A member of the RNA family "Repression of heat shock gene expression (ROSE) element" from Methylobacterium sp. WL8, 97 nucleotides long. A reference for the family is Nocker et al. (2001), "A mRNA-based thermosensor controls expression of rhizobial heat shock genes", Nucleic Acids Res. From the family's description: This family represents a 5' UTR cis-regulatory element found in heat shock mRNAs and is known as the ROSE (repression of heat shock gene expression) element. The ROSE element is a negative regulator of heat shock gene expression. The secondary structure is thought to be regulated by temperature. Rfam classes the family as an RNA thermoregulator. A search with the family's covariance model found it, with a score of 53 bits.

RNA sequence: CGCGAGGCCGAACGACGGCUCGCGCUACGGGCGCCGGGUCAAGGCAUCCGGCGACCCUUGUCAUCACGUUGCUCCAAGGAGGAUGUGGUCAUGAGGA
Numbered sequence: 001c002g003c004g005a006g007g008c009c010g011a012a013c014g015a016c017g018g019c020u021c022g023c024g025c026u027a028c029g030g031g032c033g034c035c036g037g038g039u040c041a042a043g044g045c046a047u048c049c050g051g052c053g054a055c056c057c058u059u060g061u062c063a064u065c066a067c068g069u070u071g072c073u074c075c076a077a078g079g080a081g082g083a084u085g086u087g088g089u090c091a092u093g094a095g096g097a
Stems, first nucleotide, its partner, number of pairs: 001024006008018002030056002032053008057095005064088007072081003